[Rfam]
RNA sequence: GCGGCCGUGGUCUAGUCUGGAAGGAUGGCGGCCUUCCACGCCGCAGAGCGCCCUGCACGCGCGGAGAACCCGGGUUCAAAUCCCGGCGGCCGCA
Numbered sequence: 001g002c003g004g005c006c007g008u009g010g011u012c013u014a015g016u017c018u019g020g021a022a023g024g025a026u027g028g029c030g031g032c033c034u035u036c037c038a039c040g041c042c043g044c045a046g047a048g049c050g051c052c053c054u055g056c057a058c059g060c061g062c063g064g065a066g067a068a069c070c071c072g073g074g075u076u077c078a079a080a081u082c083c084c085g086g087c088g089g090c091c092g093c094a
Stems, first nucleotide, its partner, number of pairs: 001093007010026004028044005070086005
RNA: tRNA
Organism: Infirmifilum uzonense